[Rfam]
RNA: Small nucleolar RNA Z118/Z121/Z120
Organism: Paspalum vaginatum
RNA sequence: UGUUUGCUGUGAUGAUUCCUAUUAGGACGGUAUCUGAUGGGGAUGACUUUAAGCGCACCUCAUCUGAUUAUACCAAAUCUGAAUAUGGUUUCUGAGCAAAAC
Numbered sequence: 001u002g003u004u005u006g007c008u009g010u011g012a013u014g015a016u017u018c019c020u021a022u023u024a025g026g027a028c029g030g031u032a033u034c035u036g037a038u039g040g041g042g043a044u045g046a047c048u049u050u051a052a053g054c055g056c057a058c059c060u061c062a063u064c065u066g067a068u069u070a071u072a073c074c075a076a077a078u079c080u081g082a083a084u085a086u087g088g089u090u091u092c093u094g095a096g097c098a099a100a101a102c
Base pairs, nucleotide, nucleotide: 002102003101004099005098006097007096037063038062039061040060041059042058